The family of this 60-nucleotide sequence from Streptomyces sp. HG99 is "msiK RNA".
The base pairs follow the family's consensus structure, which is taken from published work.
The family has 120 seed sequences and 1,374 matches in Rfam 15.1.
NCBI's taxonomy places the organism under Bacteria, Actinomycetes, Kitasatosporales, Streptomycetaceae, Streptomyces.
Rfam classes the family as a cis-regulatory element.
[Rfam]
RNA sequence: GGCUCACCACCUUCCACAACGGAUCGUCCGGCACGUUCCUGCCGGUAGAAGGGGUCCAUU
Numbered sequence: 001g002g003c004u005c006a007c008c009a010c011c012u013u014c015c016a017c018a019a020c021g022g023a024u025c026g027u028c029c030g031g032c033a034c035g036u037u038c039c040u041g042c043c044g045g046u047a048g049a050a051g052g053g054g055u056c057c058a059u060u
Stems, first nucleotide, its partner, number of pairs: 010052005016046001028045006
Dot-bracket structure: .........(((((.(...........((((((......))))))).)))))........